RNA: Bacterial large subunit ribosomal RNA, nucleotides 2670 to 2932
Organism: Chloroflexus aurantiacus
RNA sequence: CGUAGAGCAGUGCGCGGGGCUGGCCCUAGUACGAGAGGACCGGGCUGGACGGACCGCUGGUGGAGGAGUUGUGGGGCGGCCUGCAAGCUCCGUAGCUAUGUCCGGGAGUGAGAACCGCUGAAAGCAUCUAAGUGGGAAACACGCCGCAAGACGACUGCUCUCACAGCGCAAGGCUGGUAAGCCCCCCGCGAGAUGAGCGGGAUAAGCGGCCGGAGCUGGAGGCGGGGUGACCCGUAGAGGCGACCGGUGCGCAGGGGCGAGGG
Numbered sequence: 001c002g003u004a005g006a007g008c009a010g011u012g013c014g015c016g017g018g019g020c021u022g023g024c025c026c027u028a029g030u031a032c033g034a035g036a037g038g039a040c041c042g043g044g045c046u047g048g049a050c051g052g053a054c055c056g057c058u059g060g061u062g063g064a065g066g067a068g069u070u071g072u073g074g075g076g077c078g079g080c081c082u083g084c085a086a087g088c089u090c091c092g093u094a095g096c097u098a099u100g101u102c103c104g105g106g107a108g109u110g111a112g113a114a115c116c117g118c119u120g121a122a123a124g125c126a127u128c129u130a131a132g133u134g135g136g137a138a139a140c141a142c143g144c145c146g147c148a149a150g151a152c153g154a155c156u157g158c159u160c161u162c163a164c165a166g167c168g169c170a171a172g173g174c175u176g177g178u179a180a181g182c183c184c185c186c187c188g189c190g191a192g193a194u195g196a197g198c199g200g201g202a203u204a205a206g207c208g209g210c211c212g213g214a215g216c217u218g219g220a221g222g223c224g225g226g227g228u229g230a231c232c233c234g235u236a237g238a239g240g241c242g243a244c245c246g247g248u249g250c251g252c253a254g255g256g257g258c259g260a261g262g263g
Stems, first nucleotide, its partner, number of pairs: 004161008014147004020048007050104005058098003065091005070085006108142003115135005164176003178260001181258004185201005206252003209248005215241002222235005